[Rfam]
RNA sequence: CCAAAGGCCCUUUUAAGGGCCACCCACACCUCGAGAGAGCUACGU
Numbered sequence: 001c002c003a004a005a006g007g008c009c010c011u012u013u014u015a016a017g018g019g020c021c022a023c024c025c026a027c028a029c030c031u032c033g034a035g036a037g038a039g040c041u042a043c044g045u
Stems, first nucleotide, its partner, number of pairs: 006021006

Histone 3' UTR stem-loop: a 45-nucleotide RNA from Menidia menidia. NCBI's taxonomy places the organism under Eukaryota, Osteoglossocephalai, Atherinomorphae, Atheriniformes, Menidia. It scores 34 bits against the family's covariance model. The family's consensus secondary structure is taken from published work.